[Rfam]
Overview:
Fluoride riboswitch aptamer (crcB RNA motif): a 60-nucleotide RNA from Anoxybacteroides amylolyticum. The base pairs follow the family's consensus structure, which is taken from published work. Lineage of the source: Bacteria > Bacillati > Bacilli > Caryophanales > Anoxybacteroides. The family has 289 seed sequences and 2,293 matches in Rfam 15.1. The match comes from Rfam's covariance-model search (57 bits).
RNA sequence: ACUUGAAUAGGCGAUGGAGUUCGCCAUAAUUGCCGGAAGGCUGAUGACUCCUACCAGUUG
Numbered sequence: 001a002c003u004u005g006a007a008u009a010g011g012c013g014a015u016g017g018a019g020u021u022c023g024c025c026a027u028a029a030u031u032g033c034c035g036g037a038a039g040g041c042u043g044a045u046g047a048c049u050c051c052u053a054c055c056a057g058u059u060g
Stems, first nucleotide, its partner, number of pairs: 010025004016051006032041003